[Rfam]
Nucleotides: 079
Stems, first nucleotide, its partner, number of pairs: 004076004009071002013066007021058007029051001031049003
Number, partner (000 for none) and nucleotide at each position: 001000c002000u003000g004076c005075u006074g007073g008000g009071g010070c011000u012000a013066a014065a015064g016063u017062g018061c019060u020000g021058a022057c023056a024055g025054u026053g027052c028000a029051g030000a031049u032048a033047g034000u035000g036000g037000u038000c039000c040000u041000c042000u043000c044000g045000u046000g047033c048032u049031a050000c051029c052027g053026c054025a055024c056023u057022g058021u059000g060019g061018g062017u063016a064015c065014u066013u067000g068000c069000u070010g071009c072000u073007c074006c075005a076004g077000c078000a079000g
This 79-nucleotide RNA from Eptesicus fuscus belongs to the Rfam family "mir-17 microRNA precursor family". The source organism's lineage runs through Eukaryota, Sarcopterygii, Eutheria, Chiroptera and Eptesicus. About the family: This family represents the microRNA (miRNA) precursor mir-17, family, which includes mir-20, mir-91, and mir-103. miRNAs are transcribed as ~70nt precursors (modelled here) and subsequently processed by the Dicer enzyme to give a ~22nt product. In this case the mature sequence comes from the 3' arm of the precursor. Rfam's curators put it in the seed alignment. For this family Rfam cites "Structural Features Within Precursor microRNA-20a Regulate Dicer-TRBP Processing" (Liu et al., J Mol Biol, 2025).